[Rfam]
RNA sequence: GUAUAGCCCUGAUUGAAAUGACAUCCUUUUUGCUUUUUUAAGCAAAAAGAUAUAAUGGAAAGCAGGAAAUAGC
Numbered sequence: 001g002u003a004u005a006g007c008c009c010u011g012a013u014u015g016a017a018a019u020g021a022c023a024u025c026c027u028u029u030u031u032g033c034u035u036u037u038u039u040a041a042g043c044a045a046a047a048a049g050a051u052a053u054a055a056u057g058g059a060a061a062g063c064a065g066g067a068a069a070u071a072g073c
Stems, first nucleotide, its partner, number of pairs: 009065003013061002018056002023051003029046006

The family of this 73-nucleotide sequence from Polaribacter sp. ALD11 is "Flavo-1 RNA". NCBI's taxonomy places the organism under Bacteria, Pseudomonadati, Flavobacteriia, Flavobacteriaceae, Polaribacter. The match comes from Rfam's covariance-model search (73 bits). The family's consensus secondary structure is taken from published work. By type it is a small RNA.